[Rfam]
Nucleotides: 119
Stems, first nucleotide, its partner, number of pairs: 002049006009042001016036002019030001056113001058111005069097007077089003081086001
Number, partner (000 for none) and nucleotide at each position: 001000u002049u003048g004047c005046c006045c007044u008000c009042u010000u011000a012000a013000g014000u015000c016036u017035g018000g019030c020000a021000g022000u023000g024000u025000c026000u027000u028000a029000a030019g031000u032000g033000g034000c035017c036016a037000a038000u039000a040000c041000u042009g043000a044007g045006g046005g047004g048003u049002a050000u051000a052000a053000a054000a055000g056113u057000u058111c059110u060109c061108u062107u063000g064000c065000a066000a067000a068000c069097c070096c071095a072094g073093a074092g075091g076000u077089g078088a079087g080000g081086u082000a083000g084000a085000a086081a087079c088078u089077c090000u091075u092074c093073u094072u095071u096070g097069g098000a099000u100000c101000a102000u103000g104000c105000u106000u107062a108061g109060g110059a111058g112000g113056a114000a115000c116000a117000c118000a119000u
Shown here is a 119-nucleotide RNA sequence from Sylvia borin, a member of the family "Small nucleolar RNA SNORA26". The family's consensus secondary structure was predicted with RNAalifold. From the family's description: The snoRNA HBI-6 belong to the H/ACA family of snoRNAs, guiding the pseudouridylation of position U4522 if the 28S rRNA. HBI-6 is the human orthologue of mouse MBI-6 snoRNA. The family is grouped with related families in Rfam's "SNORA27 clan". Rfam classes the family as an H/ACA-box small nucleolar RNA.